[Rfam]
The record is a 370-nucleotide RNA sequence from Staphylococcus saprophyticus, which matches "T-box leader" in Rfam. Taxonomically the source falls in Staphylococcus saprophyticus (Bacteria, Bacilli, Caryophanales, Staphylococcus).
RNA sequence: AGAAACACAGUAACAAGGAAAGUAGAACUUACACUGCUGACACAGAGAGUCUUCGUAACGCUGAAAGAAGAUACAGAAAGAAAGUUUGAAAAUGGCCUUUGAGUGUUGAUGCCAAUAUGAGGUAUCAACGGGCGCGCCCGUUAUAGCGCUACAGUAUUAACAUUUUGUUAAAUGGCGUACUGGAUUAUUCCACACGUUAUCUUCUCGUUAAUACUCAUUUUAUUUAUAGAAUGGGUUUUUUAUUUACGAAAAAUGAUAACACGAUUCAGUCAACGUUACAUAUACAACAAUUUAGCGUACUGGAUAAGGUUACUUUAGUGAUAAUGUAACAAACAAAGGUGGUACCGCGAGCUAAGCUUUCGUCCUUUAC
Dot-bracket structure: ......((......((((......((((((.......((.........((((((............)))))).))......))))))........))))...))..(((((((.......))))))).(((......)))........................................................................................................................................................................(((((.(........).))))).....((((.......(((((.......)))))))))...
Numbered sequence: 001a002g003a004a005a006c007a008c009a010g011u012a013a014c015a016a017g018g019a020a021a022g023u024a025g026a027a028c029u030u031a032c033a034c035u036g037c038u039g040a041c042a043c044a045g046a047g048a049g050u051c052u053u054c055g056u057a058a059c060g061c062u063g064a065a066a067g068a069a070g071a072u073a074c075a076g077a078a079a080g081a082a083a084g085u086u087u088g089a090a091a092a093u094g095g096c097c098u099u100u101g102a103g104u105g106u107u108g109a110u111g112c113c114a115a116u117a118u119g120a121g122g123u124a125u126c127a128a129c130g131g132g133c134g135c136g137c138c139c140g141u142u143a144u145a146g147c148g149c150u151a152c153a154g155u156a157u158u159a160a161c162a163u164u165u166u167g168u169u170a171a172a173u174g175g176c177g178u179a180c181u182g183g184a185u186u187a188u189u190c191c192a193c194a195c196g197u198u199a200u201c202u203u204c205u206c207g208u209u210a211a212u213a214c215u216c217a218u219u220u221u222a223u224u225u226a227u228a229g230a231a232u233g234g235g236u237u238u239u240u241u242a243u244u245u246a247c248g249a250a251a252a253a254u255g256a257u258a259a260c261a262c263g264a265u266u267c268a269g270u271c272a273a274c275g276u277u278a279c280a281u282a283u284a285c286a287a288c289a290a291u292u293u294a295g296c297g298u299a300c301u302g303g304a305u306a307a308g309g310u311u312a313c314u315u316u317a318g319u320g321a322u323a324a325u326g327u328a329a330c331a332a333a334c335a336a337a338g339g340u341g342g343u344a345c346c347g348c349g350a351g352c353u354a355a356g357c358u359u360u361c362g363u364c365c366u367u368u369a370c
Stems, first nucleotide, its partner, number of pairs: 007104002015099004025087006038075002049072006107127007129140003309330005315324001336367004347363005
Pairs were carried over by alignment from the consensus structure, which is taken from published work. Its family is annotated with tRNA binding in the Gene Ontology.